[Rfam]
Description
This 199-nucleotide sequence from Alphabaculovirus leseparatae belongs to the Rfam family "Baculoviridae Nucleocapsid Assembly essential Element". About the family: Internal cis-element within the ac83 gene. The base pairs follow the family's consensus structure, which was predicted with RNAfold. Lineage of the source: Viruses > Naldaviricetes > Lefavirales > Baculoviridae > Alphabaculovirus leseparatae. Rfam links the family to the GO term viral capsid assembly. By type it is a cis-regulatory element.
RNA sequence: GAUUUUUAACGCGUAUAUUGGCAAAUAUACAACAGUCGGACGUUUGCGAUCAACUUUUGCACUUGAUUCACGAGAAAUAUACUACGGUCCUCUCGAAAUACACUACGACACGAACGAAACCGUCUACAAAAGUGAAAACAGGCCCUGAAAAUAUUGUAGUAUCCGGGGUGAAUACACGAAAAAGAGGCUCUACGAUUUU
Number, nucleotide and partner (000 for none) at each position: 001g000002a000003u000004u000005u000006u000007u000008a000009a189010c000011g000012c000013g030014u029015a028016u027017a026018u025019u024020g000021g000022c000023a000024a019025a018026u017027a016028u015029a014030c013031a000032a000033c000034a000035g054036u053037c000038g051039g050040a000041c046042g000043u000044u000045u000046g041047c000048g000049a000050u039051c038052a000053a036054c035055u000056u000057u000058u000059g000060c000061a000062c000063u000064u000065g000066a000067u000068u000069c000070a000071c000072g000073a000074g000075a000076a000077a000078u000079a000080u000081a000082c000083u000084a000085c000086g000087g000088u000089c000090c000091u000092c000093u000094c000095g000096a000097a000098a000099u000100a000101c000102a000103c000104u000105a000106c000107g000108a000109c000110a000111c000112g000113a000114a000115c000116g000117a000118a000119a000120c000121c000122g000123u000124c000125u000126a000127c000128a000129a000130a000131a000132g000133u178134g177135a000136a000137a000138a000139c000140a000141g000142g169143c168144c167145c166146u000147g000148a000149a000150a000151a162152u161153a160154u159155u000156g000157u000158a000159g154160u153161a152162u151163c000164c000165g000166g145167g144168g143169u142170g000171a000172a000173u000174a000175c000176a000177c134178g133179a000180a000181a000182a000183a000184g000185a000186g000187g000188c000189u009190c000191u000192a000193c000194g000195a000196u000197u000198u000199u000